[Rfam]
RNA sequence: GGGGACGACUUGGCUUCGACGCCGGUGACGAACCCUUGGGUGCAUGCCGAGAUGGCAGCGAAUCUCGUAAAUCCAAAGCUGCAACGUAAUAGUCGCAAACGACGAAAACUACGCACUGGCGGCGUAAGCCGUUCCAGUCGUCCUGGCUGAGGCGCCUAUAACUCAGUAGCAACAUCCCAGGACGUCAUCGCUUAUAGGCUGCUCCGUUCACCAGAGCUCACUGGUGUUCGGCUAAGAUUAAAGAGCUCGCCUCUCGCACCCUGACCUUCGGGUCGCUUGAGGUUAAAUCAAUAGAAGGACACUAAGCAUGUAGACCUCAAGGCCUAGUGCUGGCGGACGCGGGUUCAAUUCCCGCCGUCUCCACCA
Numbered sequence: 001g002g003g004g005a006c007g008a009c010u011u012g013g014c015u016u017c018g019a020c021g022c023c024g025g026u027g028a029c030g031a032a033c034c035c036u037u038g039g040g041u042g043c044a045u046g047c048c049g050a051g052a053u054g055g056c057a058g059c060g061a062a063u064c065u066c067g068u069a070a071a072u073c074c075a076a077a078g079c080u081g082c083a084a085c086g087u088a089a090u091a092g093u094c095g096c097a098a099a100c101g102a103c104g105a106a107a108a109c110u111a112c113g114c115a116c117u118g119g120c121g122g123c124g125u126a127a128g129c130c131g132u133u134c135c136a137g138u139c140g141u142c143c144u145g146g147c148u149g150a151g152g153c154g155c156c157u158a159u160a161a162c163u164c165a166g167u168a169g170c171a172a173c174a175u176c177c178c179a180g181g182a183c184g185u186c187a188u189c190g191c192u193u194a195u196a197g198g199c200u201g202c203u204c205c206g207u208u209c210a211c212c213a214g215a216g217c218u219c220a221c222u223g224g225u226g227u228u229c230g231g232c233u234a235a236g237a238u239u240a241a242a243g244a245g246c247u248c249g250c251c252u253c254u255c256g257c258a259c260c261c262u263g264a265c266c267u268u269c270g271g272g273u274c275g276c277u278u279g280a281g282g283u284u285a286a287a288u289c290a291a292u293a294g295a296a297g298g299a300c301a302c303u304a305a306g307c308a309u310g311u312a313g314a315c316c317u318c319a320a321g322g323c324c325u326a327g328u329g330c331u332g333g334c335g336g337a338c339g340c341g342g343g344u345u346c347a348a349u350u351c352c353c354g355c356c357g358u359c360u361c362c363a364c365c366a
Stems, first nucleotide, its partner, number of pairs: 001362007020335008034322007043310005048067005055082005118133006139184006146167004154199007201232003206227001215247005249283005256276002259272003263300001265298005339355005
Shown here is a 366-nucleotide RNA sequence from Marinobacter nauticus, a member of the family "transfer-messenger RNA". It is annotated as a non-coding RNA gene. The sequence is in the family's curated seed alignment.